Background: Rfam assigns this 63-nucleotide RNA from Cebus imitator to the family "U7 small nuclear RNA". Pairs were carried over by alignment from the consensus structure, which was predicted with PFOLD. NCBI's taxonomy places the organism under Eukaryota, Teleostomi, Eutheria, Haplorrhini, Cebus. It scores 57 bits against the family's covariance model. On this family, see Marz et al., Genomics Proteomics Bioinformatics 2007: "U7 snRNAs: a computational survey". About the family: Animal histone pre-mRNAs are spliced by a different mechanism than nuclear pre-mRNAs and self-splicing introns. This processing involves the U7 snRNP, which contains only one RNA species: U7. The 5' end of U7 RNA is thought to base-pair to a conserved spacer element downstream of the cleavage site in histone pre-mRNA. This family contains a number of annotated U7 pseudogenes.

RNA sequence: AAGAGUUACAGGCUCUUUCAUAAUUUGUCUAGCAGGCUUUCUGGCUUUUACCAGGAGGCCCUG
Number, nucleotide and partner (000 for none) at each position: 001a000002a000003g000004a000005g000006u000007u000008a000009c000010a000011g000012g000013c000014u000015c000016u000017u000018u000019c000020a000021u000022a000023a000024u000025u000026u000027g000028u000029c000030u000031a000032g000033c000034a000035g060036g059037c058038u057039u056040u055041c054042u053043g052044g051045c000046u000047u000048u000049u000050a000051c044052c043053a042054g041055g040056a039057g038058g037059c036060c035061c000062u000063g000